[Rfam]
RNA: MIR480 microRNA precursor family
RNA sequence: UAAUCUAUUUAGGGCAGAUCAUCUUGUAGUUAUGACAGAUCCACACCUGACUACUUAAAAUCAAUCGUCAUCAUAAGUCUGACUACAUUAUUGACAUUGAAAACAAAGGAUAACUAUUGUGCGAAUAAUAAUGUUUUGAGAUUUUAA
Numbered sequence: 001u002a003a004u005c006u007a008u009u010u011a012g013g014g015c016a017g018a019u020c021a022u023c024u025u026g027u028a029g030u031u032a033u034g035a036c037a038g039a040u041c042c043a044c045a046c047c048u049g050a051c052u053a054c055u056u057a058a059a060a061u062c063a064a065u066c067g068u069c070a071u072c073a074u075a076a077g078u079c080u081g082a083c084u085a086c087a088u089u090a091u092u093g094a095c096a097u098u099g100a101a102a103a104c105a106a107a108g109g110a111u112a113a114c115u116a117u118u119g120u121g122c123g124a125a126u127a128a129u130a131a132u133g134u135u136u137u138g139a140g141a142u143u144u145u146a147a
Stems, first nucleotide, its partner, number of pairs: 007142001008140002012136001014134002019124001023121001025119001027116005